Rfam assigns this 75-nucleotide RNA sequence to the family "dfrA-dnaX RNA".
[Rfam]
RNA sequence: ACGCCUAAUGGUAAAACUAUAAAAAUUUCAUCAUAACAACCAAAAAGAAUUAUAAGAGAUGAAUUAUGAUAGUUU
Numbered sequence: 001a002c003g004c005c006u007a008a009u010g011g012u013a014a015a016a017c018u019a020u021a022a023a024a025a026u027u028u029c030a031u032c033a034u035a036a037c038a039a040c041c042a043a044a045a046a047g048a049a050u051u052a053u054a055a056g057a058g059a060u061g062a063a064u065u066a067u068g069a070u071a072g073u074u075u
Base pairs, nucleotide, nucleotide: 030070031069032068033067034066035065036064
The family's RNA type in Rfam is small RNA. The sequence is in the family's curated seed alignment.